Rfam assigns this 94-nucleotide RNA sequence from a Flavobacteriales bacterium to the family "TPP riboswitch aptamer (THI element)". It scores 66 bits against the family's covariance model. The family's consensus secondary structure is taken from published work. Gene Ontology term of the family: thiamine pyrophosphate binding. Taxonomically the source falls in Flavobacteriales (Bacteria, Pseudomonadati, Bacteroidota, Flavobacteriia).
RNA sequence: ACCACACUUUAGGGGUGUUUGCAAAAGCAGACUGAGAAAAACCCUUUUACCUGAUACCGGUAAUGCGGACGAAGGGAAAAGUAAAUUCUUCUUC
Numbered sequence: 001a002c003c004a005c006a007c008u009u010u011a012g013g014g015g016u017g018u019u020u021g022c023a024a025a026a027g028c029a030g031a032c033u034g035a036g037a038a039a040a041a042c043c044c045u046u047u048u049a050c051c052u053g054a055u056a057c058c059g060g061u062a063a064u065g066c067g068g069a070c071g072a073a074g075g076g077a078a079a080a081g082u083a084a085a086u087u088c089u090u091c092u093u094c
Base pairs, nucleotide, nucleotide: 006082007081008080009079010078011045012044013043014042016039017032018031019030020029021028050075051074052073057068058067059066